[Rfam]
This 126-nucleotide RNA sequence from Pipistrellus kuhlii belongs to the Rfam family "mir-9193 microRNA precursor family". Taxonomically the source falls in Pipistrellus (Eukaryota, Eumetazoa, Amniota, Vespertilionidae). Its family is annotated with miRNA-mediated post-transcriptional gene silencing and RISC complex in the Gene Ontology. The family's consensus secondary structure was predicted with RNAalifold. It scores 55 bits against the family's covariance model.
RNA sequence: CAUGCACCAGUGGGAUCCCUUAGCCUGGCCUGCGAGAUUGGGCUGAAAUUGGCUCUCUGCCAUUCUGCUAGUGUUCCCUGAUUGUGAAAGGGUGCAGGCCAGGCUGAGGGACCUCACUGGUGCAUA
Numbered sequence: 001c002a003u004g005c006a007c008c009a010g011u012g013g014g015a016u017c018c019c020u021u022a023g024c025c026u027g028g029c030c031u032g033c034g035a036g037a038u039u040g041g042g043c044u045g046a047a048a049u050u051g052g053c054u055c056u057c058u059g060c061c062a063u064u065c066u067g068c069u070a071g072u073g074u075u076c077c078c079u080g081a082u083u084g085u086g087a088a089a090g091g092g093u094g095c096a097g098g099c100c101a102g103g104c105u106g107a108g109g110g111a112c113c114u115c116a117c118u119g120g121u122g123c124a125u126a
Base pairs, nucleotide, nucleotide: 003124004123006121008119009118010117012115013114014113016111017110018109019108020107021106022105023104024103025102027100028099029098030097031096032095033094034093